[Rfam]
RNA sequence: GAAUUUGAUAGAGGAGCAGUUUUCAUUAGUAGGGUUCUUGAAAGGUAAGGGCUUUGAUGAUAGAAUUUGAAAGGGGAAACUGCCGAAGAAUAUACUGACCCUUAUAGGUAUAUUCUGGUUAUAUGGUUAACAGCUAUAUAACUGUCAUCAUAUAUUUGAUGGAGAGCUAUCAGUUCA
Numbered sequence: 001g002a003a004u005u006u007g008a009u010a011g012a013g014g015a016g017c018a019g020u021u022u023u024c025a026u027u028a029g030u031a032g033g034g035u036u037c038u039u040g041a042a043a044g045g046u047a048a049g050g051g052c053u054u055u056g057a058u059g060a061u062a063g064a065a066u067u068u069g070a071a072a073g074g075g076g077a078a079a080c081u082g083c084c085g086a087a088g089a090a091u092a093u094a095c096u097g098a099c100c101c102u103u104a105u106a107g108g109u110a111u112a113u114u115c116u117g118g119u120u121a122u123a124u125g126g127u128u129a130a131c132a133g134c135u136a137u138a139u140a141a142c143u144g145u146c147a148u149c150a151u152a153u154a155u156u157u158g159a160u161g162g163a164g165a166g167c168u169a170u171c172a173g174u175u176c177a
Base pairs, nucleotide, nucleotide: 006172007171008170009169010168011167016083017082018081019080020079021078022077023076024075032068033067034066035065036064037063038062087116088115089114090113091112092111093110094109095108096107098105117143118142119141120140121139122138123137124136125135126134127133145162146161147160148159149158150157
About this RNA
The record is a 177-nucleotide RNA from Acetivibrio saccincola, which matches "Lysine riboswitch aptamer" in Rfam. The organism belongs to Acetivibrio, within Bacteria.